[Rfam]
RNA sequence: CACAUCAACGCGCUUUGCUGAUGUGGACACAAAUCGCGCUUUUGUGGACGCGAUUUGUUGCUACGUCAGCAAAGCGCGCUGACGUGG
Numbered sequence: 001c002a003c004a005u006c007a008a009c010g011c012g013c014u015u016u017g018c019u020g021a022u023g024u025g026g027a028c029a030c031a032a033a034u035c036g037c038g039c040u041u042u043u044g045u046g047g048a049c050g051c052g053a054u055u056u057g058u059u060g061c062u063a064c065g066u067c068a069g070c071a072a073a074g075c076g077c078g079c080u081g082a083c084g085u086g087g
Base pairs, nucleotide, nucleotide: 001086002085003084005082006081007080009078010077011076012075013074014073015072016071017070018069019068020067021066023064024063025062026061029058030057031056032055033054034053035052036051037050038049040047041046
RNA: MIR7486 microRNA precursor family